The record is a 73-nucleotide sequence from Pediculus humanus, which matches "mir-965 microRNA precursor family" in Rfam. The family has 16 seed sequences and 224 matches in Rfam 15.1. The match comes from Rfam's covariance-model search (57 bits).
RNA sequence: UCUCAUAGGGGAAAACUUUAUGCCUUAUGAUGCUAAUUAAAAUCCAUAAGCGUAUAGCUUUUCCCCUUUGGUG
Numbered sequence: 001u002c003u004c005a006u007a008g009g010g011g012a013a014a015a016c017u018u019u020a021u022g023c024c025u026u027a028u029g030a031u032g033c034u035a036a037u038u039a040a041a042a043u044c045c046a047u048a049a050g051c052g053u054a055u056a057g058c059u060u061u062u063c064c065c066c067u068u069u070g071g072u073g
Stems, first nucleotide, its partner, number of pairs: 003071003007067001009065003012061002016057002019054002023050001026048004